The record is a 45-nucleotide RNA, which matches "Plastid-rpl16 group II-D1 intron" in Rfam. A search with the family's covariance model found it, with a score of 48 bits. The literature on the family includes a 2023 paper in Plant Commun by Richter et al., "Retrograde signaling in plants: A critical review focusing on the GUN pathway and beyond". Plastid-rpl16 is a non-coding RNA (ncRNA) recognised in plastids. It was recognised in and intronic region of a ribosome rpl16 gene. Gene Ontology term of the family: Group II intron splicing.

RNA sequence: AAGAGCUUUGAGCCAAUAAAGAAAGAAAGUCGACUCAAGAAUAAA
Number, nucleotide and partner (000 for none) at each position: 001a000002a000003g000004a000005g000006c000007u039008u038009u000010g036011a035012g034013c000014c032015a000016a030017u029018a000019a000020a000021g000022a000023a000024a000025g000026a000027a000028a000029g017030u016031c000032g014033a000034c012035u011036c010037a000038a008039g007040a000041a000042u000043a000044a000045a000